[Rfam]
RNA sequence: UCAGAAGUUCAGGGCCAUAACAGAAGUGCUCAUGGCACAGCCAUGUCAGAUUCCAACAAGUCUGUGAAUUCUGCU
Numbered sequence: 001u002c003a004g005a006a007g008u009u010c011a012g013g014g015c016c017a018u019a020a021c022a023g024a025a026g027u028g029c030u031c032a033u034g035g036c037a038c039a040g041c042c043a044u045g046u047c048a049g050a051u052u053c054c055a056a057c058a059a060g061u062c063u064g065u066g067a068a069u070u071c072u073g074c075u
Base pairs, nucleotide, nucleotide: 013042014041015040019075021073022072023071024070025069026038027037028036047064048063049062050061051060052059
Mammalian CPEB3 ribozyme: a 75-nucleotide RNA from Crocodylus porosus. Its family is annotated with RNA nuclease activity in the Gene Ontology.